[Rfam]
RNA sequence: CGGGGCUGCCGCCGUCCCUGUCCUCCAGGAGCUCACCUGUCUCUGGCCGUGAGCCCCUCGAGGCCAGAGCCUGCGUCUGCCUCAGCACCAGC
Numbered sequence: 001c002g003g004g005g006c007u008g009c010c011g012c013c014g015u016c017c018c019u020g021u022c023c024u025c026c027a028g029g030a031g032c033u034c035a036c037c038u039g040u041c042u043c044u045g046g047c048c049g050u051g052a053g054c055c056c057c058u059c060g061a062g063g064c065c066a067g068a069g070c071c072u073g074c075g076u077c078u079g080c081c082u083c084a085g086c087a088c089c090a091g092c
Base pairs, nucleotide, nucleotide: 005080006079008077010075011074012073016069018067019066020065022063024061025060027058028057029056031054032053033052034051035050036049037046038045039044